[Rfam]
Small nucleolar RNA U61: a 78-nucleotide RNA sequence from Anisodus acutangulus. It scores 80 bits against the family's covariance model. NCBI's taxonomy places the organism under Eukaryota, Embryophyta, asterids, Solanaceae, Anisodus. The family's consensus secondary structure was predicted with WAR.
RNA sequence: GUGCUAUGAUGAAAAUUUCUUGUGUCGGAGACCUUUGGUCUAUGAUGGUUACACAACCCUCUAAGAAGUUCUGAGUAC
Numbered sequence: 001g002u003g004c005u006a007u008g009a010u011g012a013a014a015a016u017u018u019c020u021u022g023u024g025u026c027g028g029a030g031a032c033c034u035u036u037g038g039u040c041u042a043u044g045a046u047g048g049u050u051a052c053a054c055a056a057c058c059c060u061c062u063a064a065g066a067a068g069u070u071c072u073g074a075g076u077a078c
Base pairs, nucleotide, nucleotide: 001078002077003076004075